[Rfam]
Notes: A member of the RNA family "mir-205 microRNA precursor family" from Callorhinchus milii, 75 nucleotides long.
RNA sequence: UUCUGCUGUCCUUCAUUCCACCGGAGUCUGUGACAUAAACCAACCAGAUUUCAGUGGGGUGAAGCACAUGAGACA
Numbered sequence: 001u002u003c004u005g006c007u008g009u010c011c012u013u014c015a016u017u018c019c020a021c022c023g024g025a026g027u028c029u030g031u032g033a034c035a036u037a038a039a040c041c042a043a044c045c046a047g048a049u050u051u052c053a054g055u056g057g058g059g060u061g062a063a064g065c066a067c068a069u070g071a072g073a074c075a
Stems, first nucleotide, its partner, number of pairs: 011064006019056003023052004028047003

Pairs were carried over by alignment from the consensus structure, which was predicted with RNAalifold. The literature on the family includes a 2005 paper in Genes Dev by Chen et al., "The developmental miRNA profiles of zebrafish as determined by small RNA cloning". The family has 44 seed sequences and 1,154 matches in Rfam 15.1.